[Rfam]
Nucleotides: 151
Base pairs, nucleotide, nucleotide: 001050002049003048004047005046006045007044022039023038024037025036026035029123030122031121032120033119052103053102054101055100064084065083066082067081068080069079070078071146072145073144074143075142076141077140085094086093087092135151136150137149138148139147
Number, partner (000 for none) and nucleotide at each position: 001050g002049u003048u004047g005046u006045u007044a008000g009000c010000a011000c012000a013000a014000g015000g016000c017000a018000u019000g020000g021000u022039a023038g024037c025036a026035g027000a028000a029123c030122u031121a032120a033119a034000a035026c036025u037024g038023c039022u040000a041000a042000a043000g044007u045006a046005a047004c048003a049002g050001c051000u052103c053102g054101c055100c056000c057000c058000a059000c060000a061000g062000a063000a064084g065083c066082a067081u068080u069079a070078g071146g072145u073144g074143c075142c076141u077140u078070c079069u080068g081067a082066u083065g084064u085094g086093g087092u088000g089000a090000a091000a092087a093086c094085c095000u096000g097000c098000a099000a100055g101054g102053c103052g104000u105000c106000a107000a108000g109000g110000g111000u112000a113000a114000a115000c116000a117000a118000a119033u120032u121031u122030a123029g124000a125000c126000a127000a128000a129000g130000a131000c132000u133000g134000g135151u136150a137149g138148a139147g140077a141076a142075g143074g144073c145072a146071c147139c148138u149137c150136u151135a
Overview
Shown here is a 151-nucleotide RNA, a member of the family "FuFi-1 RNA". It is annotated as a small RNA.